A member of the RNA family "c-di-AMP riboswitch aptamer (ydaO/yuaA leader)" from Fusibacter sp. 3D3, 148 nucleotides long.
The organism belongs to Fusibacter, within Bacteria.

RNA sequence: AAUAUACUAUUGCUGAAUUUCCAUGUACGCAUACAUGGAAUACGGGGGAACCAAUUAUUAGGGGUGAAUCUAAACGAAAGUUUAGUAGGGCAAUUUCCUUUCUGUCCGAAUCCGUCAGCUAACCUCGGAAGCUUCGAAGGGAAGGAGG
Numbered sequence: 001a002a003u004a005u006a007c008u009a010u011u012g013c014u015g016a017a018u019u020u021c022c023a024u025g026u027a028c029g030c031a032u033a034c035a036u037g038g039a040a041u042a043c044g045g046g047g048g049a050a051c052c053a054a055u056u057a058u059u060a061g062g063g064g065u066g067a068a069u070c071u072a073a074a075c076g077a078a079a080g081u082u083u084a085g086u087a088g089g090g091c092a093a094u095u096u097c098c099u100u101u102c103u104g105u106c107c108g109a110a111u112c113c114g115u116c117a118g119c120u121a122a123c124c125u126c127g128g129a130a131g132c133u134u135c136g137a138a139g140g141g142a143a144g145g146a147g148g
Stems, first nucleotide, its partner, number of pairs: 012132003019040009043127005052061001062113003070085004088107004